RNA sequence: CCGCCCGUCAUUGGGGAGUAGCCGCCCUUCGCACGAAGGGGCCUGCGUCAACACACUUGGCCAACCCGGCCAUGGCGCAGGCGGUUCCCGUACUUGGCAAGACCUUUGACCACGUUGCUGCCGGACUGGCCGGGGCGCGCGUGGUCAUUGGAAACGCCGGCCAGGGAGUUC
Numbered sequence: 001c002c003g004c005c006c007g008u009c010a011u012u013g014g015g016g017a018g019u020a021g022c023c024g025c026c027c028u029u030c031g032c033a034c035g036a037a038g039g040g041g042c043c044u045g046c047g048u049c050a051a052c053a054c055a056c057u058u059g060g061c062c063a064a065c066c067c068g069g070c071c072a073u074g075g076c077g078c079a080g081g082c083g084g085u086u087c088c089c090g091u092a093c094u095u096g097g098c099a100a101g102a103c104c105u106u107u108g109a110c111c112a113c114g115u116u117g118c119u120g121c122c123g124g125a126c127u128g129g130c131c132g133g134g135g136c137g138c139g140c141g142u143g144g145u146c147a148u149u150g151g152a153a154a155c156g157c158c159g160g161c162c163a164g165g166g167a168g169u170u171c
Stems, first nucleotide, its partner, number of pairs: 026039003041082010058072005083170007
This 171-nucleotide RNA sequence from Niveibacterium umoris belongs to the Rfam family "Manganese Mn2+ riboswitch aptamer (yybP-ykoY)".
Pairs were carried over by alignment from the consensus structure.
From the family's description: This RNA was originally discovered in E. coli during a large scale screen and was named SraF. The family was later found to exist upstream of related families of protein genes in many bacteria, including the the yybP and ykoK genes in B. subtilis. The specific functions of these proteins are unknown, but this structured RNA element may be involved in their genetic regulation as a riboswitch.
A reference for the family is Argaman et al. (2001), "Novel small RNA-encoding genes in the intergenic regions of Escherichia coli", Curr Biol.
The match comes from Rfam's covariance-model search (107 bits).
Its family is annotated with manganese ion binding in the Gene Ontology.